Rfam assigns this 115-nucleotide RNA sequence from Corynebacterium yudongzhengii to the family "TPP riboswitch aptamer (THI element)". Rfam links the family to the GO term thiamine pyrophosphate binding.
RNA sequence: CCGACCGAACACGGGGGCCCGAAGGUAGAGGGCUGAGAUCCGCGCUGUAUCCCGCGCGACCACCGUUUGAACCUGUCUGGUUAGCACCAGCGAAGGAAGUGAGGAUAAGUCCAUG
Numbered sequence: 001c002c003g004a005c006c007g008a009a010c011a012c013g014g015g016g017g018c019c020c021g022a023a024g025g026u027a028g029a030g031g032g033c034u035g036a037g038a039u040c041c042g043c044g045c046u047g048u049a050u051c052c053c054g055c056g057c058g059a060c061c062a063c064c065g066u067u068u069g070a071a072c073c074u075g076u077c078u079g080g081u082u083a084g085c086a087c088c089a090g091c092g093a094a095g096g097a098a099g100u101g102a103g104g105a106u107a108a109g110u111c112c113a114u115g
Stems, first nucleotide, its partner, number of pairs: 006103001009100002011066004016060001017033004041058004072096003077090004